Shown here is a 120-nucleotide sequence from Brassica carinata, a member of the family "Small nucleolar RNA snoR104".
The source organism's lineage runs through Eukaryota, Streptophyta, Embryophyta, Magnoliopsida and Brassica.
The family's consensus secondary structure was predicted with WAR.
The family has 8 seed sequences and 612 matches in Rfam 15.1.
The family's RNA type in Rfam is H/ACA-box small nucleolar RNA.
[Rfam]
RNA sequence: GGAGAGCAUCAAUGAGUUCUGAUGUUGUCUGAUACAAUCUUCCUAAAUAAAAAACUCUGCACUUCCUGCUUGCGGUAGCUAAGCUUUGUUCCGCGAGUCUCAUUAUCAGCAAAGACACAA
Numbered sequence: 001g002g003a004g005a006g007c008a009u010c011a012a013u014g015a016g017u018u019c020u021g022a023u024g025u026u027g028u029c030u031g032a033u034a035c036a037a038u039c040u041u042c043c044u045a046a047a048u049a050a051a052a053a054a055c056u057c058u059g060c061a062c063u064u065c066c067u068g069c070u071u072g073c074g075g076u077a078g079c080u081a082a083g084c085u086u087u088g089u090u091c092c093g094c095g096a097g098u099c100u101c102a103u104u105a106u107c108a109g110c111a112a113a114g115a116c117a118c119a120a
Base pairs, nucleotide, nucleotide: 001030002029003028005026006025007024008023009022010021011020056112068098069097070096071095072094073093074092075091077089